RNA sequence: UUUUGCUUAGGUACGGAUAUCCGCACCUGAGCAAGGUUGUAUUUACUUACAUACUGCUUUACAUAUACAUAUACAUACUGUGUGUGUAUAUAUAUAUACAUACUGUGUGUACAUAUACAUACUGUGUGUAUAUAUAUAUGUAUAUGUAAAGCAGUAUGUAAGUAAAUACAACUUUGCUCAGGUGCGGAUAUCCGUACCUAAGCAAAA
Numbered sequence: 001u002u003u004u005g006c007u008u009a010g011g012u013a014c015g016g017a018u019a020u021c022c023g024c025a026c027c028u029g030a031g032c033a034a035g036g037u038u039g040u041a042u043u044u045a046c047u048u049a050c051a052u053a054c055u056g057c058u059u060u061a062c063a064u065a066u067a068c069a070u071a072u073a074c075a076u077a078c079u080g081u082g083u084g085u086g087u088a089u090a091u092a093u094a095u096a097u098a099c100a101u102a103c104u105g106u107g108u109g110u111a112c113a114u115a116u117a118c119a120u121a122c123u124g125u126g127u128g129u130a131u132a133u134a135u136a137u138a139u140g141u142a143u144a145u146g147u148a149a150a151g152c153a154g155u156a157u158g159u160a161a162g163u164a165a166a167u168a169c170a171a172c173u174u175u176g177c178u179c180a181g182g183u184g185c186g187g188a189u190a191u192c193c194g195u196a197c198c199u200a201a202g203c204a205a206a207a
Stems, first nucleotide, its partner, number of pairs: 001207033037171011050158013065145003069141003072136001074128005082122006089111008
The record is a 207-nucleotide RNA sequence from Rosa chinensis, which matches "MIR6217 microRNA precursor family" in Rfam. The family's consensus secondary structure was predicted with RNAalifold. The organism belongs to Rosa, within Eukaryota. Rfam 15.1 lists 2,266 matches to the family in 13 species.